[Rfam]
RNA sequence: GGUUAAUACCCAGUUACACAAGGUAAUUGAGUGUUCUGACCAUUCAUAGAAUGUGUUAGAAACAAUUUUUGGAUCGCUCAACCGGGGUCUCCGGAUGAGCAAA
Numbered sequence: 001g002g003u004u005a006a007u008a009c010c011c012a013g014u015u016a017c018a019c020a021a022g023g024u025a026a027u028u029g030a031g032u033g034u035u036c037u038g039a040c041c042a043u044u045c046a047u048a049g050a051a052u053g054u055g056u057u058a059g060a061a062a063c064a065a066u067u068u069u070u071g072g073a074u075c076g077c078u079c080a081a082c083c084g085g086g087g088u089c090u091c092c093g094g095a096u097g098a099g100c101a102a103a
Stems, first nucleotide, its partner, number of pairs: 008034001009031001013027005037058004041053005078101001082097001086092002
This 103-nucleotide RNA from Caenorhabditis auriculariae belongs to the Rfam family "SL2 RNA". Clan: SL clan. This family represents SL2 RNA. SL2 RNA is involved in trans splicing in lower eukaryotes. Trans-splicing is a form of RNA processing. NCBI's taxonomy places the organism under Eukaryota, Metazoa, Rhabditida, Rhabditoidea, Caenorhabditis. It scores 55 bits against the family's covariance model. It is annotated as a non-coding RNA gene. The literature on the family includes a 2000 paper in Mol Cell Biol by Evans and Blumenthal, "trans splicing of polycistronic Caenorhabditis elegans pre-mRNAs: analysis of the SL2 RNA".